[Rfam]
RNA sequence: CCUGCUAAGCCUCUUAACAAUGCUCAAAUCAGCAGGU
Numbered sequence: 001c002c003u004g005c006u007a008a009g010c011c012u013c014u015u016a017a018c019a020a021u022g023c024u025c026a027a028a029u030c031a032g033c034a035g036g037u
Stems, first nucleotide, its partner, number of pairs: 001036006008024003
RNA: abiF RNA